[Rfam]
RNA: Yersinia sRNA 251
RNA sequence: AGUAGGCAUUCAGCGUACGCUGGCAGAGCGCCGAGCGUACGCAGUCGUCUUUGGUGAAACGCACAAUCCCUAUCAUCUCAUCUUCUUCAAAGCGGGCCAUGGCAUCGCUCAGGCCAGACUGAACGCCGCGCGGUAAAUCACACUGGGUGAUAUCCCCGUUGACGAUAACCGUGACGUUCUCCCCGAGGCGAGUU
Numbered sequence: 001a002g003u004a005g006g007c008a009u010u011c012a013g014c015g016u017a018c019g020c021u022g023g024c025a026g027a028g029c030g031c032c033g034a035g036c037g038u039a040c041g042c043a044g045u046c047g048u049c050u051u052u053g054g055u056g057a058a059a060c061g062c063a064c065a066a067u068c069c070c071u072a073u074c075a076u077c078u079c080a081u082c083u084u085c086u087u088c089a090a091a092g093c094g095g096g097c098c099a100u101g102g103c104a105u106c107g108c109u110c111a112g113g114c115c116a117g118a119c120u121g122a123a124c125g126c127c128g129c130g131c132g133g134u135a136a137a138u139c140a141c142a143c144u145g146g147g148u149g150a151u152a153u154c155c156c157c158g159u160u161g162a163c164g165a166u167a168a169c170c171g172u173g174a175c176g177u178u179c180u181c182c183c184c185g186a187g188g189c190g191a192g193u194u
Stems, first nucleotide, its partner, number of pairs: 003053004008048001014041006061078001063076001066073002083112002088107001093102001095100001113193002117189001119188002125134003137166003144158003171183001173181002